[Rfam]
RNA sequence: AGGGGAGUAGUUCAACGGAAAAACUUUAGUCUUCAAAACUGACAUCGUGGGUUCGACUCCCGCCUCCCUUG
Numbered sequence: 001a002g003g004g005g006a007g008u009a010g011u012u013c014a015a016c017g018g019a020a021a022a023a024c025u026u027u028a029g030u031c032u033u034c035a036a037a038a039c040u041g042a043c044a045u046c047g048u049g050g051g052u053u054c055g056a057c058u059c060c061c062g063c064c065u066c067c068c069u070u071g
Base pairs, nucleotide, nucleotide: 001070002069003068004067005066006065007064010024011023012022026042027041028040029039030038047063048062049061050060051059

Overview
A member of the RNA family "tRNA" from Paramecium tetraurelia, 71 nucleotides long. The family's consensus secondary structure is taken from published work. About the family: Transfer RNA (tRNA) molecules are approximately 80 nucleotides in length.